Shown here is a 250-nucleotide RNA from Plasmodium falciparum, a member of the family "Protozoan signal recognition particle RNA". Rfam classes the family as a non-coding RNA gene. A reference for the family is Wild et al. (2002), "Towards the structure of the mammalian signal recognition particle", Curr Opin Struct Biol. The match comes from Rfam's covariance-model search (130 bits).
RNA sequence: GUAGCUGUUACAUUCUUGGGACUGCAUUUCGAUGCAAAAGGAAUGGGAUGCUAUAAUAUUUCUGAGAAUUUUCAAUAUCUUAAAAAUUCCCGCCUAUCACAAGACGUCAGUUACUGAACAUAUUCUUCUGGAAAGAGAAUAUGUUGAAGUAAUGAUGAAUCAUGAACCGCCUCAGGCUGGAAACAGAGCAGGGUUAGUGAUCGCUGACGUACGGUGUGAAGAUUACGGUUGAAUAAAAGGAUAUUUCAGA
Numbered sequence: 001g002u003a004g005c006u007g008u009u010a011c012a013u014u015c016u017u018g019g020g021a022c023u024g025c026a027u028u029u030c031g032a033u034g035c036a037a038a039a040g041g042a043a044u045g046g047g048a049u050g051c052u053a054u055a056a057u058a059u060u061u062c063u064g065a066g067a068a069u070u071u072u073c074a075a076u077a078u079c080u081u082a083a084a085a086a087u088u089c090c091c092g093c094c095u096a097u098c099a100c101a102a103g104a105c106g107u108c109a110g111u112u113a114c115u116g117a118a119c120a121u122a123u124u125c126u127u128c129u130g131g132a133a134a135g136a137g138a139a140u141a142u143g144u145u146g147a148a149g150u151a152a153u154g155a156u157g158a159a160u161c162a163u164g165a166a167c168c169g170c171c172u173c174a175g176g177c178u179g180g181a182a183a184c185a186g187a188g189c190a191g192g193g194u195u196a197g198u199g200a201u202c203g204c205u206g207a208c209g210u211a212c213g214g215u216g217u218g219a220a221g222a223u224u225a226c227g228g229u230u231g232a233a234u235a236a237a238a239g240g241a242u243a244u245u246u247c248a249g250a
Stems, first nucleotide, its partner, number of pairs: 011045007061250003074245005088232002090228003094221002097219005104210008113150003117145010128135002153157001159201005169194004177186003